The family of this 359-nucleotide sequence is "transfer-messenger RNA". The literature on the family includes a 1996 paper in RNA by Williams and Bartel, "Phylogenetic analysis of tmRNA secondary structure". The family's RNA type in Rfam is non-coding RNA gene.
RNA sequence: GGGGAUGUUAUUGGCUUCGACGCCGAUGAUGAAGCUCAUAGAUGCAUGCCGAGAGCGCAUUUUCUCUCGUAAAUCAAAUUUGCAUAUUUUAGUCGCAAACGACGAAUCUUACGCUCUAGCUGCCUAAGGGCAGCUUGUCCGCUUCACUGAAUACUUGUGGUCAGUGGACCCGACUGUAGCGCACGCACACAAGUCCGUAUAAAGUCAAGCCUCGGGGCUUUAUACUAAACUUAGAGGAUCGCGUUUUGUACCCUGUUCGUCGGGUCACUUAAUGUUAAAAUAAUUGACGAUAUCUAAGCAUGUAGUAUUCUCGAGUGUAGUGUUGGCGGACGCGGGUUCAACUCCCGCCAUCUCCACCA
Numbered sequence: 001g002g003g004g005a006u007g008u009u010a011u012u013g014g015c016u017u018c019g020a021c022g023c024c025g026a027u028g029a030u031g032a033a034g035c036u037c038a039u040a041g042a043u044g045c046a047u048g049c050c051g052a053g054a055g056c057g058c059a060u061u062u063u064c065u066c067u068c069g070u071a072a073a074u075c076a077a078a079u080u081u082g083c084a085u086a087u088u089u090u091a092g093u094c095g096c097a098a099a100c101g102a103c104g105a106a107u108c109u110u111a112c113g114c115u116c117u118a119g120c121u122g123c124c125u126a127a128g129g130g131c132a133g134c135u136u137g138u139c140c141g142c143u144u145c146a147c148u149g150a151a152u153a154c155u156u157g158u159g160g161u162c163a164g165u166g167g168a169c170c171c172g173a174c175u176g177u178a179g180c181g182c183a184c185g186c187a188c189a190c191a192a193g194u195c196c197g198u199a200u201a202a203a204g205u206c207a208a209g210c211c212u213c214g215g216g217g218c219u220u221u222a223u224a225c226u227a228a229a230c231u232u233a234g235a236g237g238a239u240c241g242c243g244u245u246u247u248g249u250a251c252c253c254u255g256u257u258c259g260u261c262g263g264g265u266c267a268c269u270u271a272a273u274g275u276u277a278a279a280a281u282a283a284u285u286g287a288c289g290a291u292a293u294c295u296a297a298g299c300a301u302g303u304a305g306u307a308u309u310c311u312c313g314a315g316u317g318u319a320g321u322g323u324u325g326g327c328g329g330a331c332g333c334g335g336g337u338u339c340a341a342c343u344c345c346c347g348c349c350a351u352c353u354c355c356a357c358c359a
Base pairs, nucleotide, nucleotide: 001355002354003353004352005351006350007349021328022327023326024325025324026323027322028321030319034316035315036314037313041309042308043307045302046301047300048299049298050069051068052067053066054065057083058082059081062078063077118135119134120133121132122131123130124129139179141177142176144173147164148163149162150161153194154193155192156191157190158189197223198222199221210237211236212235213234241275242274243273244272245271248268249267252264253263254262255294257292259288260287261286332348333347334346335345336344
The family is grouped with related families in Rfam's "tRNA clan". Rfam's curators write: Bacterial tmRNA, also known as 10Sa RNA or SsrA, is named for its dual tRNA and mRNA-like properties. Its role is to liberate the mRNA from a stalled ribosome. To accomplish this part of the tmRNA is used as a reading frame that ends in a translation stop signal. The broken mRNA is replaced in the ribosome by the tmRNA and translation of the tmRNA leads to addition of a proteolysis tag to the incomplete protein enabling recognition by a protease. Recently a number of permuted tmRNA genes have been found encoded in two parts. tmRNAs have been identified in eubacteria and some chloroplasts but are absent from archaeal and eukaryote nuclear genomes.